[Rfam]
RNA sequence: ACCUGGAUCCGGGCCCCUCUGGCGACUUAGACGUGGUCGCGAUGUCGGAUCUCUUCA
Numbered sequence: 001a002c003c004u005g006g007a008u009c010c011g012g013g014c015c016c017c018u019c020u021g022g023c024g025a026c027u028u029a030g031a032c033g034u035g036g037u038c039g040c041g042a043u044g045u046c047g048g049a050u051c052u053c054u055u056c057a
Stems, first nucleotide, its partner, number of pairs: 006051007022040006
Dot-bracket structure: .....(((((((.........((((((.......))))))....)))))))......
RNA: terC RNA
Organism: Azospirillum sp. B510